[Rfam]
RNA sequence: GGCCAGGGGGAAGGGAAAAAUAUCGACUGAAACAUUUAGUAUGGGCAAGCAGGGAGCUGGAUAGAUUCACACUUAACCCUAGCC
Numbered sequence: 001g002g003c004c005a006g007g008g009g010g011a012a013g014g015g016a017a018a019a020a021u022a023u024c025g026a027c028u029g030a031a032a033c034a035u036u037u038a039g040u041a042u043g044g045g046c047a048a049g050c051a052g053g054g055a056g057c058u059g060g061a062u063a064g065a066u067u068c069a070c071a072c073u074u075a076a077c078c079c080u081a082g083c084c
Stems, first nucleotide, its partner, number of pairs: 001084003005080004
RNA: HIV gag stem loop 3 (GSL3)